Annotation
Shown here is an 85-nucleotide sequence from Denticeps clupeoides, a member of the family "Small nucleolar RNA SNORD11B". The family's consensus secondary structure was predicted with WAR. Rfam links the family to the GO terms RNA processing and nucleolus.
[Rfam]
RNA sequence: AUCAAGCAGUGAUGAUGAUGACAUAAUGUCAAAGCCCUGAAACCUUAAUGUGGGUUUUUAAGUCACUACCUCAUCUGAGCUUGAG
Number, nucleotide and partner (000 for none) at each position: 001a000002u084003c083004a082005a081006g080007c079008a000009g000010u000011g000012a000013u000014g000015a000016u000017g000018a000019u000020g000021a000022c000023a000024u000025a000026a000027u000028g000029u000030c000031a000032a000033a000034g000035c000036c000037c000038u000039g000040a000041a000042a000043c000044c000045u000046u000047a000048a000049u000050g000051u000052g000053g000054g000055u000056u000057u000058u000059u000060a000061a000062g000063u000064c000065a000066c000067u000068a000069c000070c000071u000072c000073a000074u000075c000076u000077g000078a000079g007080c006081u005082u004083g003084a002085g000